[Rfam]
A member of the RNA family "Small nucleolar RNA SNORA68" from Cricetulus griseus, 130 nucleotides long. It scores 104 bits against the family's covariance model. On this family, see Ganot et al., Genes Dev 1997: "The family of box ACA small nucleolar RNAs is defined by an evolutionarily conserved secondary structure and ubiquitous sequence elements essential for RNA accumulation". About the family: U68 is a member of the H/ACA class of small nucleolar RNAs (snoRNAs) which act as guides in the the modification of uridines to pseudouridines. The base pairs follow the family's consensus structure, which was predicted with PFOLD.
RNA sequence: CAGGCACCCAACCCAAGAACUACUGCUGCCUGUAGCAGCAGUUUAAAUGGUGGUGCACACAGCAAAGGGCUUCAUCACCUUUGGGGGACUGUGUGGUGCCCCCCAGAGUGAAUAAGGAGGUUCUACAGUC
Numbered sequence: 001c002a003g004g005c006a007c008c009c010a011a012c013c014c015a016a017g018a019a020c021u022a023c024u025g026c027u028g029c030c031u032g033u034a035g036c037a038g039c040a041g042u043u044u045a046a047a048u049g050g051u052g053g054u055g056c057a058c059a060c061a062g063c064a065a066a067g068g069g070c071u072u073c074a075u076c077a078c079c080u081u082u083g084g085g086g087g088a089c090u091g092u093g094u095g096g097u098g099c100c101c102c103c104c105a106g107a108g109u110g111a112a113u114a115a116g117g118a119g120g121u122u123c124u125a126c127a128g129u130c
Base pairs, nucleotide, nucleotide: 004056005055006054007053008052018043019042020041021040023038024037025036026035027034067123068122069121070120071119072118073117079108080107081106082105083104084103085102086101087100089098